[Rfam]
RNA sequence: UGGAUGGUAUUCGAAAGAAACUAUACCAAAAGACAAUUUCUUAUAUUAAUAAUUUGAGUGUGCAUAGCCGAUAUUUCAUUUUAGAAAAUCGGACUCAUUA
Number, nucleotide and partner (000 for none) at each position: 001u028002g027003g026004a024005u023006g022007g021008u020009a000010u019011u018012c000013g000014a000015a000016a000017g000018a011019a010020a008021c007022u006023a005024u004025a000026c003027c002028a001029a000030a000031a000032g000033a000034c000035a000036a000037u000038u000039u000040c000041u000042u000043a000044u000045a000046u000047u000048a000049a000050u000051a000052a000053u000054u000055u000056g000057a000058g000059u000060g000061u000062g000063c000064a000065u000066a095067g094068c092069c091070g090071a089072u088073a000074u087075u086076u085077c000078a000079u000080u000081u000082u000083a000084g000085a076086a075087a074088a072089u071090c070091g069092g068093a000094c067095u066096c000097a000098u000099u000100a000
This 100-nucleotide sequence from Eubacterium sp. CAG:156 belongs to the Rfam family "pan motif". The source organism's lineage runs through Bacteria, Bacillati, Bacillota, Eubacteriaceae and Eubacterium. The base pairs follow the family's consensus structure, which is taken from published work. It is annotated as a cis-regulatory element.